A member of the RNA family "Mason-Pfizer monkey virus packaging signal" from Mus musculus, 256 nucleotides long. Rfam describes the family as follows. This family represents a group of sequences that are related to the Mason-Pfizer monkey virus (MPMV) packaging signal. The packaging signal is located in the 5' UTR and is required for specific RNA encapsidation. By type it is a cis-regulatory element. The literature on the family includes a 1995 paper in J Virol by Harrison et al., "Secondary structure model of the Mason-Pfizer monkey virus 5' leader sequence: identification of a structural motif common to a variety of retroviruses".
[Rfam]
RNA sequence: UGGCGCCCAGCUUAGGGCUUGAGUACGAAGGGACCAGUGAAGAUAACCACAGUGUUUUGUGUGGAAGACAUCUUGCGCAGGAACCUGCUGCCUCGACUAGAGAUCCUAGUAAGUUCGCGGUGAUCAUGGGGACAGACGUUAAAUAGCCAUGAAUUAUUUGUGGAACGGUUGAAAAAGGCUUUAAAGGCGCAAGGGAUAAAGUUUAAAAUACAUGAUUUGCUUAUAUGUUUUGAUUUUGUUAAAGAGAUUUUCCUAU
Numbered sequence: 001u002g003g004c005g006c007c008c009a010g011c012u013u014a015g016g017g018c019u020u021g022a023g024u025a026c027g028a029a030g031g032g033a034c035c036a037g038u039g040a041a042g043a044u045a046a047c048c049a050c051a052g053u054g055u056u057u058u059g060u061g062u063g064g065a066a067g068a069c070a071u072c073u074u075g076c077g078c079a080g081g082a083a084c085c086u087g088c089u090g091c092c093u094c095g096a097c098u099a100g101a102g103a104u105c106c107u108a109g110u111a112a113g114u115u116c117g118c119g120g121u122g123a124u125c126a127u128g129g130g131g132a133c134a135g136a137c138g139u140u141a142a143a144u145a146g147c148c149a150u151g152a153a154u155u156a157u158u159u160g161u162g163g164a165a166c167g168g169u170u171g172a173a174a175a176a177g178g179c180u181u182u183a184a185a186g187g188c189g190c191a192a193g194g195g196a197u198a199a200a201g202u203u204u205a206a207a208a209u210a211c212a213u214g215a216u217u218u219g220c221u222u223a224u225a226u227g228u229u230u231u232g233a234u235u236u237u238g239u240u241a242a243a244g245a246g247a248u249u250u251u252c253c254u255a256u
Stems, first nucleotide, its partner, number of pairs: 006031002013025002037047002067105002069102001075097001077091004113133004118129001120127002140183003144178001190232005196226002200218002203215003241256001243254002246251001